A member of the RNA family "Small nucleolar RNA SNORA68" from Oreochromis niloticus, 132 nucleotides long. A search with the family's covariance model found it, with a score of 74 bits. The family's consensus secondary structure was predicted with PFOLD.
RNA sequence: UACGCACCCAAACCCAAAGGUCACGCCAUGUCAGUGGCGUGAUUUUGUCUGGCGUGCGAACAGGAACUUGGUCCUUGUCGCCUUUCUCUGCUGCUGUCGUGCCUCUGAAAGUGAAUUCAGGGAUCAACAUGU
Numbered sequence: 001u002a003c004g005c006a007c008c009c010a011a012a013c014c015c016a017a018a019g020g021u022c023a024c025g026c027c028a029u030g031u032c033a034g035u036g037g038c039g040u041g042a043u044u045u046u047g048u049c050u051g052g053c054g055u056g057c058g059a060a061c062a063g064g065a066a067c068u069u070g071g072u073c074c075u076u077g078u079c080g081c082c083u084u085u086c087u088c089u090g091c092u093g094c095u096g097u098c099g100u101g102c103c104u105c106u107g108a109a110a111g112u113g114a115a116u117u118c119a120g121g122g123a124u125c126a127a128c129a130u131g132u
Stems, first nucleotide, its partner, number of pairs: 003058005009052001019044010070125007082111005090102002